[Rfam]
mir-5928 microRNA precursor family: a 75-nucleotide RNA from Haemonchus placei. NCBI's taxonomy places the organism under Eukaryota, Protostomia, Chromadorea, Rhabditina, Haemonchus. The match comes from Rfam's covariance-model search (65 bits).

RNA sequence: GGCACAAACUUGAAGUAGAGUAGUUCAGUGGGGUCACCUGGUCCUAAUGAUCUUUUCUACUUCAAAUUUGGGCCC
Numbered sequence: 001g002g003c004a005c006a007a008a009c010u011u012g013a014a015g016u017a018g019a020g021u022a023g024u025u026c027a028g029u030g031g032g033g034u035c036a037c038c039u040g041g042u043c044c045u046a047a048u049g050a051u052c053u054u055u056u057c058u059a060c061u062u063c064a065a066a067u068u069u070g071g072g073c074c075c
Base pairs, nucleotide, nucleotide: 001074002073003072005070006069007068008067011064012063013062014061015060016059017058018057019056020055022053023052025050026049027048029046030045032043033042034041035040